[Rfam]
Shown here is a 146-nucleotide sequence from Otolemur garnettii, a member of the family "Small nucleolar RNA SNORA4".
About the family: ACA4 is a member of the H/ACA class of snoRNA that guide the sites of modification of uridines to pseudouridines.
The family is grouped with related families in Rfam's "SNORA4 clan".

RNA sequence: UAGUUAAAAAUCACUCAUCAUGGGGGGGAAAUGUUUUUGUAAUACCAUUUAUGAAUUUGGGCUAUUUGGGAAGAUAAAGAAAACACCACCCUCCACAGUGGGCUAUUCCACCUAGGGUAGCUCACUACAAUUUUGUGGCCUCCAUU
Numbered sequence: 001u002a003g004u005u006a007a008a009a010a011u012c013a014c015u016c017a018u019c020a021u022g023g024g025g026g027g028g029a030a031a032u033g034u035u036u037u038u039g040u041a042a043u044a045c046c047a048u049u050u051a052u053g054a055a056u057u058u059g060g061g062c063u064a065u066u067u068g069g070g071a072a073g074a075u076a077a078a079g080a081a082a083a084c085a086c087c088a089c090c091c092u093c094c095a096c097a098g099u100g101g102g103c104u105a106u107u108c109c110a111c112c113u114a115g116g117g118u119a120g121c122u123c124a125c126u127a128c129a130a131u132u133u134u135g136u137g138g139c140c141u142c143c144a145u146u
Base pairs, nucleotide, nucleotide: 004069005068006067007066008065013063015061016060024057025056029052031050032047033046035044083141086138087137088136089135097126098125099124100123101122102121103120104119105118106117107116108115